[Rfam]
The record is an 87-nucleotide RNA from Monoraphidium neglectum, which matches "Small nucleolar RNA Z159/U59" in Rfam. NCBI's taxonomy places the organism under Eukaryota, Chlorophyta, Chlorophyceae, Selenastraceae, Monoraphidium. Pairs were carried over by alignment from the consensus structure, which was predicted with PFOLD.

RNA sequence: GGGCCGAUGAUGAUCAAACAAAACUUUCGUUCUACCGAGCAGGCACAGCCUGUGUGGAAACAACUUGGAGACCUGAACUGAAGGCCA
Dot-bracket structure: .((((.............................................................................)))).
Rfam links the family to the GO terms nucleolus and RNA processing. The family's RNA type in Rfam is C/D-box small nucleolar RNA. For this family Rfam cites "The high diversity of snoRNAs in plants: identification and comparative study of 120 snoRNA genes from Oryza sativa" (Chen et al., Nucleic Acids Res, 2003).